[Rfam]
RNA sequence: GGGUGACCAAUUUCUCUUGGUGCUUGAGUGCUCAUAUUGUCUAGCACCAUUUGAAAUCGGUUACAG
Numbered sequence: 001g002g003g004u005g006a007c008c009a010a011u012u013u014c015u016c017u018u019g020g021u022g023c024u025u026g027a028g029u030g031c032u033c034a035u036a037u038u039g040u041c042u043a044g045c046a047c048c049a050u051u052u053g054a055a056a057u058c059g060g061u062u063a064c065a066g
Stems, first nucleotide, its partner, number of pairs: 003064002005061001007060002010057005018049005027042002

Notes:
A member of the RNA family "mir-29 microRNA precursor family" from Neogobius melanostomus, 66 nucleotides long. Rfam 15.1 lists 3,328 matches to the family in 787 species. Rfam's curators write: This family represents the microRNA (miRNA) precursors mir-29. Gene Ontology terms of the family: gene silencing by miRNA and RISC complex.